This 142-nucleotide sequence from Sanguibacter sp. HDW7 belongs to the Rfam family "FMN riboswitch aptamer (RFN element)". Taxonomically the source falls in Sanguibacter (Bacteria, Bacillati, Micrococcales, Sanguibacteraceae).
RNA sequence: CACGUGCUCCGGGGUCGGUGAGAAUCCGAGCCGGCGGUCAUAGUCCGCGAACCGUUACGUCGUCACCGCCGGUGACCGACUGACGGCUGAUCCGGUGGAACUCCGGGACCGACGGUCAAAGUCCGGAUGGGAGGCGUACGUG
Numbered sequence: 001c002a003c004g005u006g007c008u009c010c011g012g013g014g015u016c017g018g019u020g021a022g023a024a025u026c027c028g029a030g031c032c033g034g035c036g037g038u039c040a041u042a043g044u045c046c047g048c049g050a051a052c053c054g055u056u057a058c059g060u061c062g063u064c065a066c067c068g069c070c071g072g073u074g075a076c077c078g079a080c081u082g083a084c085g086g087c088u089g090a091u092c093c094g095g096u097g098g099a100a101c102u103c104c105g106g107g108a109c110c111g112a113c114g115g116u117c118a119a120a121g122u123c124c125g126g127a128u129g130g131g132a133g134g135c136g137u138a139c140g141u142g
Base pairs, nucleotide, nucleotide: 003140004139005138006137007136009134010133016028017027018026030122031121032111033110034048035047036046037045043109044108052086053085054084055083056082057081091107092106093105094104095103113125114124115123